SAH (S-adenosyl-L-homocysteine) riboswitch aptamer: an 87-nucleotide RNA from Spiribacter salinus. A search with the family's covariance model found it, with a score of 48 bits.

RNA sequence: GGGUUCGAGGAGCGCUGCACCCCGCUGACAUCCGUCGGUGGGGGAGGCUCGAACACCGGACUUAAAUAACAACGGCGCUCGACUGCA
Numbered sequence: 001g002g003g004u005u006c007g008a009g010g011a012g013c014g015c016u017g018c019a020c021c022c023c024g025c026u027g028a029c030a031u032c033c034g035u036c037g038g039u040g041g042g043g044g045a046g047g048c049u050c051g052a053a054c055a056c057c058g059g060a061c062u063u064a065a066a067u068a069a070c071a072a073c074g075g076c077g078c079u080c081g082a083c084u085g086c087a
Base pairs, nucleotide, nucleotide: 003054004053005052006051007050008049021042022041023040024039025038026037027036028035